[Rfam]
c-di-GMP-I-GGC riboswitch aptamer: a 77-nucleotide RNA sequence. The family is grouped with related families in Rfam's "c-di-GMP_I riboswitch clan".

RNA sequence: AAAGAAAAAGCCAAACCUGCCGCAAGACAGGGACGGGGAAUUACGGGUCUUAUAAAAAUAUUGCCGGUUUGCCUUGA
Number, nucleotide and partner (000 for none) at each position: 001a000002a000003a074004g073005a000006a000007a000008a000009a000010g000011c036012c035013a000014a000015a000016c031017c030018u029019g028020c000021c026022g000023c000024a000025a000026g021027a000028c019029a018030g017031g016032g000033a000034c063035g012036g011037g000038g000039a070040a069041u000042u067043a000044c066045g065046g064047g061048u060049c000050u000051u000052a000053u000054a000055a000056a000057a000058a000059u000060a048061u047062u000063g034064c046065c045066g044067g042068u000069u040070u039071g000072c000073c004074u003075u000076g000077a000

Source information:
Gene Ontology term of the family: cyclic-di-GMP binding.